[Rfam]
RNA sequence: GGCAGAGUAGGAGCGCGUGUGCAGUACCUCGCAAGGGGUCCAGUGCCGGCGGGACGGGGAGUUGUCCGCCGGACGAAAAGCCACAGGCUUGCAGUACGCCCUCCGCAUCCCGCUGCC
Number, nucleotide and partner (000 for none) at each position: 001g117002g116003c115004a114005g113006a000007g000008u000009a000010g104011g103012a102013g101014c000015g099016c098017g097018u096019g095020u093021g092022c091023a000024g000025u000026a000027c000028c000029u000030c000031g000032c000033a000034a000035g000036g000037g000038g000039u000040c000041c000042a000043g074044u073045g000046c072047c071048g070049g069050c068051g067052g066053g065054a000055c000056g000057g110058g109059g108060a000061g106062u000063u000064g000065u053066c052067c051068g050069c049070c048071g047072g046073a044074c043075g000076a000077a000078a090079a089080g088081c087082c000083a000084c000085a000086g000087g081088c080089u079090u078091g022092c021093a020094g000095u019096a018097c017098g016099c015100c000101c013102u012103c011104c010105g000106c061107a000108u059109c058110c057111c000112g000113c005114u004115g003116c002117c001
Source information: Rfam assigns this 117-nucleotide RNA sequence from Pseudoflavonifractor capillosus to the family "THF (Tetrahydrofolate) riboswitch aptamer". On this family, see Huang et al., Proc Natl Acad Sci U S A 2011: "Long-range pseudoknot interactions dictate the regulatory response in the tetrahydrofolate riboswitch". About the family: Tetrahydrofolate (THF) riboswitch was first reported for Ames et al. as an RNA motif in 5' untranslated (5'-UTR)regions of folate transport and biosynthesis genes in Firmicutes genomes. Rfam 15.1 lists 747 matches to the family in 747 species. Rfam links the family to the GO term tetrahydrofolate metabolic process. Rfam's curators put it in the seed alignment.